[Rfam]
RNA sequence: CUCAGAUAUGGUGACAUGGUACCAAAGACCAUCAUGGGGAAGAUCUUCGGCUCUAUCUGCUCUCUGAGUGGUGUGCUGGUCAUCGCCCUGCCGGUUCCCGUCAUUGUGUCCAAC
Numbered sequence: 001c002u003c004a005g006a007u008a009u010g011g012u013g014a015c016a017u018g019g020u021a022c023c024a025a026a027g028a029c030c031a032u033c034a035u036g037g038g039g040a041a042g043a044u045c046u047u048c049g050g051c052u053c054u055a056u057c058u059g060c061u062c063u064c065u066g067a068g069u070g071g072u073g074u075g076c077u078g079g080u081c082a083u084c085g086c087c088c089u090g091c092c093g094g095u096u097c098c099c100g101u102c103a104u105u106g107u108g109u110c111c112a113a114c
Base pairs, nucleotide, nucleotide: 002113005110007108008107009106010105011104013102014101015100018097019096021095022094037077038076040074049063050062
RNA: Potassium channel RNA editing signal